[Rfam]
RNA: Bacterial RNase P class A
RNA sequence: AGAGUCGGUCAGGCAAUCGCUCUUUGCCUAACAGCAAGGGGAGGAAAGUCCGGGCUCCAUAGGGCAGAGUGCCAGGUAACUCCUGGGAGGUGUGAGCCUACGGAAAGUGCCACAGAAAAUAUACCGCCCACUUUUCCUUUGGGAAUCGUAGGUAAGGGUGAAAUGGUGCGGUAAGAGCGCACCGCGCGAUUGGUAACAGUCGUGGCAGGGAAAACCCCACUCGGAGCAAGACCAAAUAGGAAUCCAUUUGACUGCAAGGUCCUAACGUAUGGCCCAUACGGGAUUCGGGUAGGUCGCUUGAGGCAUGUGGUGACGCAUGUCCCAGAUGAAUGGUUGCCCACGACAGAACCCGGCUUAUCGACCGACUCUAAUC
Numbered sequence: 001a002g003a004g005u006c007g008g009u010c011a012g013g014c015a016a017u018c019g020c021u022c023u024u025u026g027c028c029u030a031a032c033a034g035c036a037a038g039g040g041g042a043g044g045a046a047a048g049u050c051c052g053g054g055c056u057c058c059a060u061a062g063g064g065c066a067g068a069g070u071g072c073c074a075g076g077u078a079a080c081u082c083c084u085g086g087g088a089g090g091u092g093u094g095a096g097c098c099u100a101c102g103g104a105a106a107g108u109g110c111c112a113c114a115g116a117a118a119a120u121a122u123a124c125c126g127c128c129c130a131c132u133u134u135u136c137c138u139u140u141g142g143g144a145a146u147c148g149u150a151g152g153u154a155a156g157g158g159u160g161a162a163a164u165g166g167u168g169c170g171g172u173a174a175g176a177g178c179g180c181a182c183c184g185c186g187c188g189a190u191u192g193g194u195a196a197c198a199g200u201c202g203u204g205g206c207a208g209g210g211a212a213a214a215c216c217c218c219a220c221u222c223g224g225a226g227c228a229a230g231a232c233c234a235a236a237u238a239g240g241a242a243u244c245c246a247u248u249u250g251a252c253u254g255c256a257a258g259g260u261c262c263u264a265a266c267g268u269a270u271g272g273c274c275c276a277u278a279c280g281g282g283a284u285u286c287g288g289g290u291a292g293g294u295c296g297c298u299u300g301a302g303g304c305a306u307g308u309g310g311u312g313a314c315g316c317a318u319g320u321c322c323c324a325g326a327u328g329a330a331u332g333g334u335u336g337c338c339c340a341c342g343a344c345a346g347a348a349c350c351c352g353g354c355u356u357a358u359c360g361a362c363c364g365a366c367u368c369u370a371a372u373c
Base pairs, nucleotide, nucleotide: 001369002368003367004366005365006364007363008362009361010360011358012338013337014336015335016334017333018332020041021040022039023038024037025036026035027034046356047355048354050353051352052351053350054349055226056225057224058223062275063274064273065272067222068221069220070219071218072086073085074084075083076082087101088099089098090097091096102217103216107215108214110210111209124157125156126153127152128151130149131148134145135144136143137142165183166182167181168180169179170178184206185204186203187202188201189200190199191198192197230295231294232293233292240286241285242284243283244282245281266280267279268278269277270276302321303320304319305318306317307316308315309314